Rfam assigns this 69-nucleotide sequence from Methylomonas paludis to the family "int-alpA RNA".
Acidobacteria (1 example), Planctomycetes (1 example), Proteobacteria.
[Rfam]
RNA sequence: ACCAAGUCUAGCCCGACGGGGUGAAAGCCGGAUACCUUCAGCCGGCUGGCUUGGUUUCUAUUUUGAGGG
Numbered sequence: 001a002c003c004a005a006g007u008c009u010a011g012c013c014c015g016a017c018g019g020g021g022u023g024a025a026a027g028c029c030g031g032a033u034a035c036c037u038u039c040a041g042c043c044g045g046c047u048g049g050c051u052u053g054g055u056u057u058c059u060a061u062u063u064u065g066a067g068g069g
Stems, first nucleotide, its partner, number of pairs: 001055008011022004028045004035069006
The family's consensus secondary structure is taken from published work.
Taxonomically the source falls in Methylomonas (Bacteria, Pseudomonadota, Methylococcales, Methylococcaceae).
A search with the family's covariance model found it, with a score of 62 bits.